[Rfam]
RNA sequence: CCGGUUCCGGUUCACAUCGAGGCCCUCCGCCCGAUGACCCGGCGACC
Numbered sequence: 001c002c003g004g005u006u007c008c009g010g011u012u013c014a015c016a017u018c019g020a021g022g023c024c025c026u027c028c029g030c031c032c033g034a035u036g037a038c039c040c041g042g043c044g045a046c047c
Stems, first nucleotide, its partner, number of pairs: 003047003007042004015036005021031003
This 47-nucleotide RNA sequence from Gordonia hirsuta belongs to the Rfam family "L31-Actinobacteria ribosomal protein leader". Taxonomically the source falls in Gordonia hirsuta (Bacteria, Mycobacteriales, Gordoniaceae, Gordonia). Rfam classes the family as a cis-regulatory leader. For this family Rfam cites "Discovery of 20 novel ribosomal leader candidates in bacteria and archaea" (Eckert and Weinberg, BMC Microbiol, 2020). The base pairs follow the family's consensus structure, which is taken from published work.